[Rfam]
RNA sequence: GGCAGUGCCGGGAGAGCGACCCGGUAUCUGGCGGAAGAGUCCUCUGUUGAGAGCGAUCAACAGAGGACUUUUCUUAAUACUGAAAUCUGAAUUUAAGUAGUGCAUAUGGACGGUUUGCCUGUGCACUCAGGAACGUAUUCAGGUGGAUACCGCAUCGCUCGGGGAGGACAAGUUCCUCCUCGCGGUUCCCGUCUUU
Number, nucleotide and partner (000 for none) at each position: 001g000002g000003c030004a029005g028006u000007g025008c024009c023010g022011g021012g020013a000014g000015a000016g000017c000018g000019a000020c012021c011022c010023g009024g008025u007026a000027u000028c005029u004030g003031g075032c000033g073034g072035a071036a070037g069038a000039g068040u067041c066042c065043u064044c063045u062046g061047u060048u059049g058050a000051g000052a000053g000054c000055g000056a000057u000058c049059a048060a047061c046062a045063g044064a043065g042066g041067a040068c039069u037070u036071u035072u034073c033074u000075u031076a000077a000078u000079a000080c000081u000082g000083a000084a000085a000086u000087c000088u000089g000090a000091a000092u000093u000094u000095a000096a000097g000098u000099a000100g000101u000102g000103c000104a000105u000106a000107u000108g000109g000110a000111c000112g000113g000114u000115u000116u000117g000118c000119c000120u000121g000122u000123g000124c000125a000126c000127u000128c000129a000130g000131g000132a000133a000134c000135g000136u000137a000138u000139u000140c000141a000142g000143g192144u191145g190146g189147a000148u000149a186150c185151c184152g183153c182154a000155u000156c000157g000158c000159u000160c000161g181162g180163g179164g178165a177166g176167g175168a174169c000170a000171a000172g000173u000174u168175c167176c166177u165178c164179c163180u162181c161182g153183c152184g151185g150186u149187u000188c000189c146190c145191g144192u143193c000194u000195u000196u000